RNA sequence: UGGAGAAGGGGAGCACGUGCAAAAGAGUUGAGUGGCAUUUGAGAAGCCAUAGAAUUUGCACGUGCCCUGCUUCUCCAAC
Numbered sequence: 001u002g003g004a005g006a007a008g009g010g011g012a013g014c015a016c017g018u019g020c021a022a023a024a025g026a027g028u029u030g031a032g033u034g035g036c037a038u039u040u041g042a043g044a045a046g047c048c049a050u051a052g053a054a055u056u057u058g059c060a061c062g063u064g065c066c067c068u069g070c071u072u073c074u075c076c077a078a079c
Base pairs, nucleotide, nucleotide: 001077002076003075004074005073006072007071008070010068011067013065014064015063016062017061018060019059020058021057022056023055
RNA: MIR164 microRNA precursor family